[Rfam]
RNA sequence: UGCCCGGUGAUGACACCCAUCCUUGCUCCCCGUGCCCCCCAGGGGCUGUGGGCGACACAUGGCUGCCCCCGGGCCAGGCUGGUUGGGGCCGGUGCCCGGGGGCUGAGGGCA
Numbered sequence: 001u002g003c004c005c006g007g008u009g010a011u012g013a014c015a016c017c018c019a020u021c022c023u024u025g026c027u028c029c030c031c032g033u034g035c036c037c038c039c040c041a042g043g044g045g046c047u048g049u050g051g052g053c054g055a056c057a058c059a060u061g062g063c064u065g066c067c068c069c070c071g072g073g074c075c076a077g078g079c080u081g082g083u084u085g086g087g088g089c090c091g092g093u094g095c096c097c098g099g100g101g102g103c104u105g106a107g108g109g110c111a
Stems, first nucleotide, its partner, number of pairs: 001111005
The family of this 111-nucleotide RNA from Microcebus murinus is "Small nucleolar RNA SNORD23". Rfam's curators put it in the seed alignment. The literature on the family includes a 2002 paper in Mol Cell Biol by Galardi et al., "Purified box C/D snoRNPs are able to reproduce site-specific 2'-O-methylation of target RNA in vitro".